The record is a 141-nucleotide RNA from Muraenolepis orangiensis, which matches "Small nucleolar RNA SNORD10" in Rfam. Rfam links the family to the GO terms nucleolus and RNA processing. On this family, see Huttenhofer et al., EMBO J 2001: "RNomics: an experimental approach that identifies 201 candidates for novel, small, non-messenger RNAs in mouse". The organism belongs to Muraenolepis, within Eukaryota. The match comes from Rfam's covariance-model search (70 bits). The family's consensus secondary structure was predicted with WAR.
RNA sequence: GUUUUAAUGAUGAAAUCCAUGCGUGUCAACUGACUCUGGAAAGUCCCGGCGCUCCGUGGCGCCGGUCGGCGUUCUGCCGGUCGGAUCGCUGCAGGGCACCGGGCUUCCGGGGCAAUGAUCAGAGACUAACUGGCUGAAUAC
Numbered sequence: 001g002u003u004u005u006a007a008u009g010a011u012g013a014a015a016u017c018c019a020u021g022c023g024u025g026u027c028a029a030c031u032g033a034c035u036c037u038g039g040a041a042a043g044u045c046c047c048g049g050c051g052c053u054c055c056g057u058g059g060c061g062c063c064g065g066u067c068g069g070c071g072u073u074c075u076g077c078c079g080g081u082c083g084g085a086u087c088g089c090u091g092c093a094g095g096g097c098a099c100c101g102g103g104c105u106u107c108c109g110g111g112g113c114a115a116u117g118a119u120c121a122g123a124g125a126c127u128a129a130c131u132g133g134c135u136g137a138a139u140a141c
Stems, first nucleotide, its partner, number of pairs: 001141002004138001045103005051097003